The record is a 111-nucleotide sequence from Wuchereria bancrofti, which matches "Potassium channel RNA editing signal" in Rfam.
By type it is a cis-regulatory element.
On this family, see Bhalla et al., Nat Struct Mol Biol 2004: "Control of human potassium channel inactivation by editing of a small mRNA hairpin".
The family has 85 seed sequences and 14,095 matches in Rfam 15.1.
[Rfam]
RNA sequence: AUAAUUAAUUUACAGGUACCCAAAACUUAUUUGGGUAUGUUAGUUGGUUCAUUAUGCGCUCUUAUGGGUGUAUUAACAAUCGCAUUACCAGUACCAGUUAUUGUUGCUAAU
Numbered sequence: 001a002u003a004a005u006u007a008a009u010u011u012a013c014a015g016g017u018a019c020c021c022a023a024a025a026c027u028u029a030u031u032u033g034g035g036u037a038u039g040u041u042a043g044u045u046g047g048u049u050c051a052u053u054a055u056g057c058g059c060u061c062u063u064a065u066g067g068g069u070g071u072a073u074u075a076a077c078a079a080u081c082g083c084a085u086u087a088c089c090a091g092u093a094c095c096a097g098u099u100a101u102u103g104u105u106g107c108u109a110a111u
Base pairs, nucleotide, nucleotide: 001111002110004108007105008104009103012098013097016094017093018092019091034074035073036072037071046060047059048058